[Rfam]
This 90-nucleotide RNA from Cebus imitator belongs to the Rfam family "Small nucleolar RNA Z122". A search with the family's covariance model found it, with a score of 42 bits. Lineage of the source: Eukaryota > Sarcopterygii > Eutheria > Cebinae > Cebus.
RNA sequence: AAAGGGAAAUGAUGAAUAAAACCAUUAAAAAAUAUCUCAGGGAUCUGAAUUUUACCAGACUAUAAUUUGCAAAACCUUGAUAUUCCCUUU
Numbered sequence: 001a002a003a004g005g006g007a008a009a010u011g012a013u014g015a016a017u018a019a020a021a022c023c024a025u026u027a028a029a030a031a032a033u034a035u036c037u038c039a040g041g042g043a044u045c046u047g048a049a050u051u052u053u054a055c056c057a058g059a060c061u062a063u064a065a066u067u068u069g070c071a072a073a074a075c076c077u078u079g080a081u082a083u084u085c086c087c088u089u090u
Stems, first nucleotide, its partner, number of pairs: 001090007